RNA sequence: GGGGAUGAUCGGUUUCGACAGCGGCUGUCGAAGCAGGGGAAGCGUGUCGAGGAAGCGGCCAUGAUCUCGUAAACCACAGGCCGAAACAAAUAAUCGCCAAUUCUAAGAGCGAUUCUCCCCAGGCUUUCGCCCUCGCUGCCUGAUUAAGUAGCGAAGCGAAGCCUCUCUGAUGGGAGUGUCAGCCCGGGAGUGUUCCCGACCCGGAUCCUGGCAUCAGCUAGGGGACUAAACCUCUGAGCCCGGUCACGGGGCCCAGAGGGAAAUCAAACAGUGACUGAGCCCGUCGGCGACUUGUUCGCGUGAUCGCCGGGGCCGAGAAAAGCGCAGCGAACUGCACACGGAGAAGCCCUCCUUCCGCACCGUUGGACGCGGGUUCGAUUCCCGCCAUCUCCACGA
Numbered sequence: 001g002g003g004g005a006u007g008a009u010c011g012g013u014u015u016c017g018a019c020a021g022c023g024g025c026u027g028u029c030g031a032a033g034c035a036g037g038g039g040a041a042g043c044g045u046g047u048c049g050a051g052g053a054a055g056c057g058g059c060c061a062u063g064a065u066c067u068c069g070u071a072a073a074c075c076a077c078a079g080g081c082c083g084a085a086a087c088a089a090a091u092a093a094u095c096g097c098c099a100a101u102u103c104u105a106a107g108a109g110c111g112a113u114u115c116u117c118c119c120c121a122g123g124c125u126u127u128c129g130c131c132c133u134c135g136c137u138g139c140c141u142g143a144u145u146a147a148g149u150a151g152c153g154a155a156g157c158g159a160a161g162c163c164u165c166u167c168u169g170a171u172g173g174g175a176g177u178g179u180c181a182g183c184c185c186g187g188g189a190g191u192g193u194u195c196c197c198g199a200c201c202c203g204g205a206u207c208c209u210g211g212c213a214u215c216a217g218c219u220a221g222g223g224g225a226c227u228a229a230a231c232c233u234c235u236g237a238g239c240c241c242g243g244u245c246a247c248g249g250g251g252c253c254c255a256g257a258g259g260g261a262a263a264u265c266a267a268a269c270a271g272u273g274a275c276u277g278a279g280c281c282c283g284u285c286g287g288c289g290a291c292u293u294g295u296u297c298g299c300g301u302g303a304u305c306g307c308c309g310g311g312g313c314c315g316a317g318a319a320a321a322g323c324g325c326a327g328c329g330a331a332c333u334g335c336a337c338a339c340g341g342a343g344a345a346g347c348c349c350u351c352c353u354u355c356c357g358c359a360c361c362g363u364u365g366g367a368c369g370c371g372g373g374u375u376c377g378a379u380u381c382c383c384g385c386c387a388u389c390u391c392c393a394c395g396a
Base pairs, nucleotide, nucleotide: 001392002391003390004389005388006387007386019365020364021363022362023361024360030355031354032353033352035350036349037348038347043340044339045338046337047336048069049068050067051066052065056083057082058081059080060079131156133154134153135152136151137150138149139148177213178212179211180210181209182208184204185203186202188201192226193225194224195223196222197221231259232258233257234256235255236254238252239251242276243275244274245273246272247271279313280312281311282310285309286308287307289305290304294332295331296330297329369385370384371383372382373381

transfer-messenger RNA: a 396-nucleotide RNA from Streptomyces sporangiiformans. On this family, see Williams and Bartel, RNA 1996: "Phylogenetic analysis of tmRNA secondary structure". By type it is a non-coding RNA gene.